[Rfam]
RNA sequence: UGAAAGCACGUUGUAAGUUGCUCUGGAUAAGAGCGUCUGCCAAAUGCCUUACA
Numbered sequence: 001u002g003a004a005a006g007c008a009c010g011u012u013g014u015a016a017g018u019u020g021c022u023c024u025g026g027a028u029a030a031g032a033g034c035g036u037c038u039g040c041c042a043a044a045u046g047c048c049u050u051a052c053a
Base pairs, nucleotide, nucleotide: 012042013040014039015038019035020034021033022032023031024030
The record is a 53-nucleotide RNA sequence from Denticeps clupeoides, which matches "UnaL2 LINE 3' element" in Rfam. The family's consensus secondary structure is taken from published work. The family's RNA type in Rfam is cis-regulatory element. From the family's description: The eel long interspersed element (LINE) UnaL2 and its partner short interspersed element (SINE) share a conserved 3' tail containing a stem-loop that is critical for their retrotransposition. Presumably, the first step of retrotransposition is the recognition of their 3' tails by UnaL2-encoded reverse transcriptase. The solution structure of a 17-nucleotide RNA derived from the 3' tail of UnaL2 was determined by NMR.